[Rfam]
RNA sequence: CGCCAGCAUCAAGAGUCGGGACGACGCCCGACACCAACCUGCUUCCCAGCAAGGUGGUGCCUCCGUGCAAGCGGGGGGAUGUGGCCGGACCGGCAACAAACGGGACUAAG
Numbered sequence: 001c002g003c004c005a006g007c008a009u010c011a012a013g014a015g016u017c018g019g020g021a022c023g024a025c026g027c028c029c030g031a032c033a034c035c036a037a038c039c040u041g042c043u044u045c046c047c048a049g050c051a052a053g054g055u056g057g058u059g060c061c062u063c064c065g066u067g068c069a070a071g072c073g074g075g076g077g078g079a080u081g082u083g084g085c086c087g088g089a090c091c092g093g094c095a096a097c098a099a100a101c102g103g104g105a106c107u108a109a110g
Stems, first nucleotide, its partner, number of pairs: 006082005015032006033058003038054003041050003047104001084094004
The family of this 110-nucleotide sequence from Sphingomonas sp. TF3 is "SAM-I/IV (S-adenosyl methionine) riboswitch aptamer". It scores 54 bits against the family's covariance model. For this family Rfam cites "The aptamer core of SAM-IV riboswitches mimics the ligand-binding site of SAM-I riboswitches" (Weinberg et al., RNA, 2008).